[Rfam]
RNA sequence: CACGUCAGCGCGAGUUGCUGACGUGGAAGGAAAUAACUCCCCCAAGGACGCGAUUUCCUUCUAUGUCAGCAACUUGUGCUGACGUGA
Numbered sequence: 001c002a003c004g005u006c007a008g009c010g011c012g013a014g015u016u017g018c019u020g021a022c023g024u025g026g027a028a029g030g031a032a033a034u035a036a037c038u039c040c041c042c043c044a045a046g047g048a049c050g051c052g053a054u055u056u057c058c059u060u061c062u063a064u065g066u067c068a069g070c071a072a073c074u075u076g077u078g079c080u081g082a083c084g085u086g087a
Stems, first nucleotide, its partner, number of pairs: 001086021023064012037050001040047002
RNA: MIR7486 microRNA precursor family
Organism: Gossypium lobatum